[Rfam]
RNA sequence: ACACCAUCCAGAGCGACUGAGAGACCUGGCUCGUUGACGUCGCAGCAACCACCCCGACGGGGAGCGGUGCUAAGGCCAGGACCGAUGGAGA
Numbered sequence: 001a002c003a004c005c006a007u008c009c010a011g012a013g014c015g016a017c018u019g020a021g022a023g024a025c026c027u028g029g030c031u032c033g034u035u036g037a038c039g040u041c042g043c044a045g046c047a048a049c050c051a052c053c054c055c056g057a058c059g060g061g062g063a064g065c066g067g068u069g070c071u072a073a074g075g076c077c078a079g080g081a082c083c084g085a086u087g088g089a090g091a
Base pairs, nucleotide, nucleotide: 002090004088005087006086007085008084013043014042015041016040017039021032022031023030026079027078028077029076044071045070046069047068049067050066052062053061054060075083
Shown here is a 91-nucleotide RNA sequence from Glutamicibacter creatinolyticus, a member of the family "SAM riboswitch aptamer (S box leader)".